The family of this 81-nucleotide RNA from Parafrankia sp. EAN1pec is "Transposase-2 RNA".
RNA sequence: GAAGCGGGAACCCGGCACCGUGGGCAUGACCCCGUGCGAGCGGGUCAGACCGGGGGUGCCUCACCGAGAGGCGAGGCGGCA
Number, nucleotide and partner (000 for none) at each position: 001g000002a000003a000004g000005c000006g000007g000008g000009a000010a000011c054012c053013c052014g051015g050016c000017a000018c043019c000020g000021u039022g000023g000024g037025c036026a035027u034028g033029a000030c000031c000032c000033c028034g027035u026036g025037c024038g000039a021040g000041c000042g000043g018044g000045u000046c000047a000048g000049a000050c015051c014052g013053g012054g011055g000056g000057u000058g077059c076060c075061u074062c073063a000064c071065c070066g000067a000068g000069a000070g065071g064072c000073g062074a061075g060076g059077c058078g000079g000080c000081a000
It is one of the family's seed sequences. Taxonomically the source falls in Parafrankia (Bacteria, Bacillati, Actinomycetes, Frankiales).